[Rfam]
RNA sequence: GGUCAUGAGUGCCAGCGCAAAACCCCGGUUUGCUGGCCGGCAACCCUCCACCGCGGUGGGGUGCCCCGGGUGAAGACCUGGCCGGAGCCGAGAAUGGCGUCCGGCAAGCGCGGGGU
Number, nucleotide and partner (000 for none) at each position: 001g078002g077003u076004c075005a000006u000007g000008a000009g038010u000011g037012c036013c035014a034015g033016c032017g000018c000019a000020a000021a030022a029023c000024c000025c000026c000027g000028g000029u022030u021031u000032g016033c015034u014035g013036g012037c011038c009039g065040g064041c063042a000043a000044c061045c060046c059047u000048c056049c055050a000051c000052c000053g000054c000055g049056g048057u000058g000059g046060g045061g044062u000063g041064c040065c039066c000067c000068g000069g000070g000071u000072g000073a000074a000075g004076a003077c002078c001079u000080g000081g105082c104083c103084g102085g101086a100087g098088c097089c096090g095091a000092g000093a000094a000095u090096g089097g088098c087099g000100u086101c085102c084103g083104g082105c081106a000107a000108g000109c000110g000111c000112g000113g000114g000115g000116u000